[Rfam]
RNA sequence: GGUUGGGGCAGUUGCUUUCAAGGAUAUUUUCUUCAAGGGGUGAGAAGAA
Numbered sequence: 001g002g003u004u005g006g007g008g009c010a011g012u013u014g015c016u017u018u019c020a021a022g023g024a025u026a027u028u029u030u031c032u033u034c035a036a037g038g039g040g041u042g043a044g045a046a047g048a049a
Base pairs, nucleotide, nucleotide: 003021004020005019006016007015009014029049030048031047032046033045034044